The record is a 129-nucleotide sequence from Dipodomys ordii, which matches "Small nucleolar RNA SNORA40" in Rfam. The snoRNA ACA 40 belongs to the H/ACA family of snoRNAs and guides the pseudouridylation of 28S rRNA subunit at position U4565. NB This family has a high threshold value to exclude a large number of closely related sequences that do not appear to have conserved H and ACA boxes, and may be pseudogenes. Gene Ontology terms of the family: nucleolus and RNA processing. For this family Rfam cites "Mapping to nucleotide resolution of pseudouridine residues in large subunit ribosomal RNAs from representative eukaryotes, prokaryotes, archaebacteria, mitochondria and chloroplasts" (Ofengand and Bakin, J Mol Biol, 1997). Lineage of the source: Eukaryota > Chordata > Euteleostomi > Theria > Dipodomys. Rfam 15.1 lists 2,550 matches to the family in 517 species. The base pairs follow the family's consensus structure, which was predicted with RNAalifold. By type it is an H/ACA-box small nucleolar RNA.

[Rfam]
RNA sequence: AACCCUUGUGUGAGUGCCUUUGCCUAAUUUGUAACAAAGCCUUACAGACAGUGCAAACAGGAAAUCCUCUUUUGCAACCCAGAACUCCUUGUUGAGUAUGAGUUUUUGAUACAUGGAAGAAGGAAUAUG
Numbered sequence: 001a002a003c004c005c006u007u008g009u010g011u012g013a014g015u016g017c018c019u020u021u022g023c024c025u026a027a028u029u030u031g032u033a034a035c036a037a038a039g040c041c042u043u044a045c046a047g048a049c050a051g052u053g054c055a056a057a058c059a060g061g062a063a064a065u066c067c068u069c070u071u072u073u074g075c076a077a078c079c080c081a082g083a084a085c086u087c088c089u090u091g092u093u094g095a096g097u098a099u100g101a102g103u104u105u106u107u108g109a110u111a112c113a114u115g116g117a118a119g120a121a122g123g124a125a126u127a128u129g
Base pairs, nucleotide, nucleotide: 003053005051007050008049009048011046016041018039019038020037021036022035028033064126065125067123068122070120071119072118073117080108081107082106083104084103085102086101087100089098